The family of this 109-nucleotide sequence from Thalassotalea sp. HSM 43 is "TPP riboswitch aptamer (THI element)".
Rfam describes the family as follows. Vitamin B(1) in its active form thiamin pyrophosphate (TPP) is an essential coenzyme that is synthesised by coupling of pyrimidine and thiazole moieties in bacteria. The previously detected thiamin-regulatory element, thi box was extended, resulting in a new, highly conserved RNA secondary structure, the THI element, which is widely distributed in eubacteria and also occurs in some archaea. Analysis of operon structures identified a large number of new candidate thiamin-regulated genes, mostly transporters, in various prokaryotic organisms. The THI element is a riboswitch that directly binds to TPP to regulate gene expression through a variety of mechanisms in archaea, bacteria and eukaryotes. through a variety of mechanisms in archaea, bacteria and eukaryotes.
Taxonomically the source falls in Thalassotalea (Bacteria, Pseudomonadati, Alteromonadales, Colwelliaceae).
The literature on the family includes a 2002 paper in J Biol Chem by Rodionov et al., "Comparative genomics of thiamin biosynthesis in procaryotes. New genes and regulatory mechanisms".
Pairs were carried over by alignment from the consensus structure, which is taken from published work.
RNA sequence: CGUCGAACCAGGGGGUGUUAUGGGUGAAAACCGAUAACUGAGAUGCUAACGCAAACCCUUUGAACCUGAACCGGAUAAUACCGGCGUAGGAAUGGUCGAACGAUGUUGC
Numbered sequence: 001c002g003u004c005g006a007a008c009c010a011g012g013g014g015g016u017g018u019u020a021u022g023g024g025u026g027a028a029a030a031c032c033g034a035u036a037a038c039u040g041a042g043a044u045g046c047u048a049a050c051g052c053a054a055a056c057c058c059u060u061u062g063a064a065c066c067u068g069a070a071c072c073g074g075a076u077a078a079u080a081c082c083g084g085c086g087u088a089g090g091a092a093u094g095g096u097c098g099a100a101c102g103a104u105g106u107u108g109c
Stems, first nucleotide, its partner, number of pairs: 007096004011059004016053001017038005045052002065090004071084004